RNA sequence: GUUUUCUGGUAAUCGCGGUCUGCAUUAAGCAGGCUGAGGAAAGUCCAAGCUUACACAAGCUGCGAUGCUUGUAGUGUUCGUGCUUGCUAAAAAAAUAAGGCGGGAGGCCUGUGAUAACAGGCUAUGGCAGAUAAAAGGGCUAAAAUUUCGAUCAUGCCUUAGUAGUCUUGAAAAGUGCCACAGUGACGAAGCAAACAGGGAAACCUGUUUGAUGGAACGCGGUAAACCCCACGAGUAGGUAACCCAAAUUAUGGUAGGGGCGCUUCAUGACGGAAAUGAACAAAUCAUGGGGGCGAGUGCUAAGUCACUCGGAGAUAGAUGAUUACCACCGAUUUCGAUUCCUGGAUCGAAUGACGUACGGAACGUGGCUUAUAGAG
Numbered sequence: 001g002u003u004u005u006c007u008g009g010u011a012a013u014c015g016c017g018g019u020c021u022g023c024a025u026u027a028a029g030c031a032g033g034c035u036g037a038g039g040a041a042a043g044u045c046c047a048a049g050c051u052u053a054c055a056c057a058a059g060c061u062g063c064g065a066u067g068c069u070u071g072u073a074g075u076g077u078u079c080g081u082g083c084u085u086g087c088u089a090a091a092a093a094a095a096u097a098a099g100g101c102g103g104g105a106g107g108c109c110u111g112u113g114a115u116a117a118c119a120g121g122c123u124a125u126g127g128c129a130g131a132u133a134a135a136a137g138g139g140c141u142a143a144a145a146u147u148u149c150g151a152u153c154a155u156g157c158c159u160u161a162g163u164a165g166u167c168u169u170g171a172a173a174a175g176u177g178c179c180a181c182a183g184u185g186a187c188g189a190a191g192c193a194a195a196c197a198g199g200g201a202a203a204c205c206u207g208u209u210u211g212a213u214g215g216a217a218c219g220c221g222g223u224a225a226a227c228c229c230c231a232c233g234a235g236u237a238g239g240u241a242a243c244c245c246a247a248a249u250u251a252u253g254g255u256a257g258g259g260g261c262g263c264u265u266c267a268u269g270a271c272g273g274a275a276a277u278g279a280a281c282a283a284a285u286c287a288u289g290g291g292g293g294c295g296a297g298u299g300c301u302a303a304g305u306c307a308c309u310c311g312g313a314g315a316u317a318g319a320u321g322a323u324u325a326c327c328a329c330c331g332a333u334u335u336c337g338a339u340u341c342c343u344g345g346a347u348c349g350a351a352u353g354a355c356g357u358a359c360g361g362a363a364c365g366u367g368g369c370u371u372a373u374a375g376a377g
Stems, first nucleotide, its partner, number of pairs: 004377003008327007016036006041371003045368003049364001050239005055072006078234005083104006105125001106123006126229002129168004137159004145152002175227002177223003192211008243259003263292007294311005329356001334351006
The family of this 377-nucleotide RNA sequence from Ligilactobacillus pobuzihii is "Bacterial RNase P class B". About the family: Ribonuclease P (RNase P) is a ubiquitous endoribonuclease, found in archaea, bacteria and eukarya as well as chloroplasts and mitochondria. Its best characterised activity is the generation of mature 5'-ends of tRNAs by cleaving the 5'-leader elements of precursor-tRNAs.